A member of the RNA family "Small nucleolar RNA ACA64" from Ornithorhynchus anatinus, 130 nucleotides long. It is one of the family's seed sequences. Its family is annotated with RNA processing and nucleolus in the Gene Ontology.
[Rfam]
Nucleotides: 130
Stems, first nucleotide, its partner, number of pairs: 006052003013044004021036004067123001069121005079111005087101003
Number, partner (000 for none) and nucleotide at each position: 001000g002000c003000c004000g005000u006052c007051u008050g009000a010000a011000a012000g013044u014043c015042g016041c017000c018000c019000g020000c021036g022035g023034c024033c025000u026000g027000a028000c029000c030000c031000g032000u033024g034023g035022c036021c037000g038000c039000g040000a041016g042015u043014g044013a045000g046000a047000c048000c049000c050008c051007g052006g053000c054000g055000c056000c057000c058000a059000c060000a061000g062000a063000c064000a065000c066000a067123g068000g069121g070120g071119c072118c073117u074000a075000a076000a077000g078000c079111u080110u081109g082108u083107c084000g085000c086000c087101c088100a089099c090000c091000g092000c093000c094000c095000u096000g097000u098000c099089g100088u101087g102000u103000c104000g105000g106000c107083g108082a109081c110080a111079a112000a113000a114000c115000c116000c117073g118072g119071g120070c121069c122000c123067c124000g125000a126000c127000a128000g129000g130000c